A member of the RNA family "Plant signal recognition particle RNA" from Morella rubra, 305 nucleotides long.
It is annotated as a non-coding RNA gene.
Taxonomically the source falls in Morella (Eukaryota, Tracheophyta, fabids, Fagales).
Its family is annotated with signal recognition particle, endoplasmic reticulum targeting and SRP-dependent cotranslational protein targeting to membrane, signal sequence recognition in the Gene Ontology.
[Rfam]
RNA sequence: GCCGAGCUUGGUAGCGCAAGCUUGUGACUCGAGCGAGGGCAACAGGGUAUCGGGACAGUGCUUCAGCCUCAUGAGGCAGGGUCUGUUUGCGCAAUUCACUGGCUCGCCCGUUCCAAGUGGAGAGCUGAACCAUGCGACCCAGGCGAAAGCUUGGGCCUUGUGGUUCUUGAAGUGGAGGGCACAGCGUGAGGCUGGUUUCACAGAGCAGCGAAGACCUCCCGCUCUCAACAGUGGAAGGAUAACGGGCCGGUGUGCUGCUGACCCGCAUUGCCUCACGAGCCGAGUUCGCUUGAACCAGUACCUUU
Number, nucleotide and partner (000 for none) at each position: 001g040002c039003c038004g023005a022006g021007c020008u019009u018010g017011g000012u000013a000014g000015c000016g000017c010018a009019a008020g007021c006022u005023u004024g000025u000026g000027a000028c037029u036030c035031g000032a000033g000034c000035g030036a029037g028038g003039g002040c001041a000042a000043c000044a304045g303046g302047g301048u300049a299050u298051c000052g296053g295054g000055a000056c292057a291058g289059u288060g287061c000062u284063u283064c282065a000066g280067c000068c279069u278070c277071a000072u275073g274074a273075g272076g271077c270078a000079g264080g263081g262082u261083c260084u000085g258086u257087u000088u000089g255090c254091g253092c000093a000094a251095u000096u000097c000098a000099c250100u249101g248102g247103c246104u245105c244106g243107c000108c238109c237110g000111u236112u235113c234114c233115a232116a000117g229118u228119g000120g226121a225122g224123a223124g222125c221126u000127g166128a165129a164130c163131c162132a161133u160134g159135c000136g157137a000138c155139c154140c153141a152142g151143g150144c149145g000146a000147a000148a000149g144150c143151u142152u141153g140154g139155g138156c000157c136158u000159u134160g133161u132162g131163g130164u129165u128166c127167u172168u000169g000170a000171a000172g167173u000174g219175g218176a217177g216178g215179g000180c000181a000182c000183a000184g000185c210186g209187u208188g000189a000190g000191g000192c203193u202194g201195g000196u000197u000198u000199c000200a000201c194202a193203g192204a000205g000206c000207a000208g187209c186210g185211a000212a000213g000214a000215c178216c177217u176218c175219c174220c000221g125222c124223u123224c122225u121226c120227a000228a118229c117230a000231g000232u115233g114234g113235a112236a111237g109238g108239a000240u000241a000242a000243c106244g105245g104246g103247c102248c101249g100250g099251u094252g000253u091254g090255c089256u000257g086258c085259u000260g083261a082262c081263c080264c079265g000266c000267a000268u000269u000270g077271c076272c075273u074274c073275a072276c000277g070278a069279g068280c066281c000282g064283a063284g062285u000286u000287c060288g059289c058290u000291u057292g056293a000294a000295c053296c052297a000298g050299u049300a048301c047302c046303u045304u044305u000